[Rfam]
RNA sequence: AAGUGAGGUAGAGGCGCGAUAUUUAACAGUCUUUAGUGGAGCUUGAGGAGGCCAUGAAGCUAGAGAGAAGGAAAUGUCGCCGAAGCUUGUAAUAUUCUCAAUAUUACUUGCUGGGCCUGCAGUUAAAAACUGUAGGACUGUCUCAAUAAACUGCCCGGUUUAUUGAGUUGUGCUAUCUCAUGA
Numbered sequence: 001a002a003g004u005g006a007g008g009u010a011g012a013g014g015c016g017c018g019a020u021a022u023u024u025a026a027c028a029g030u031c032u033u034u035a036g037u038g039g040a041g042c043u044u045g046a047g048g049a050g051g052c053c054a055u056g057a058a059g060c061u062a063g064a065g066a067g068a069a070g071g072a073a074a075u076g077u078c079g080c081c082g083a084a085g086c087u088u089g090u091a092a093u094a095u096u097c098u099c100a101a102u103a104u105u106a107c108u109u110g111c112u113g114g115g116c117c118u119g120c121a122g123u124u125a126a127a128a129a130c131u132g133u134a135g136g137a138c139u140g141u142c143u144c145a146a147u148a149a150a151c152u153g154c155c156c157g158g159u160u161u162a163u164u165g166a167g168u169u170g171u172g173c174u175a176u177c178u179c180a181u182g183a
Stems, first nucleotide, its partner, number of pairs: 006178006016080009031065007084112003089107007113139002116136008142167009
Shown here is a 183-nucleotide RNA sequence from Bacillus sp. DNRA2, a member of the family "Lysine riboswitch aptamer". The organism belongs to Bacillus, within Bacteria.